This 62-nucleotide sequence from Synechococcus lacustris belongs to the Rfam family "Plastid-psbN 5UTR RNA".
Rfam describes the family as follows. Plastid psbN is a non-coding RNA (ncRNA) recognised in plastids. It was reported as a conserved 11 stem-loop in the prime untranslated region (5UTR) of psbN genes. It has been reported that the motif is retained in a subset of mature transcripts in barley, which can suggests a possible role in transcript alternative 5 prime processing.
The base pairs follow the family's consensus structure, which was predicted with LocARNA.
Lineage of the source: Bacteria > Bacillati > Cyanobacteriota > Synechococcus > Synechococcus lacustris.
It is annotated as a cis-regulatory element.

RNA sequence: UGAAAAUGCCCAUCACAGGUGUGGUGCCCCAUCCGGGCACCACCUUGCCGUACUCAGAAUUG
Numbered sequence: 001u002g003a004a005a006a007u008g009c010c011c012a013u014c015a016c017a018g019g020u021g022u023g024g025u026g027c028c029c030c031a032u033c034c035g036g037g038c039a040c041c042a043c044c045u046u047g048c049c050g051u052a053c054u055c056a057g058a059a060u061u062g
Base pairs, nucleotide, nucleotide: 018046019045021043022042023041024040025039026038027037028036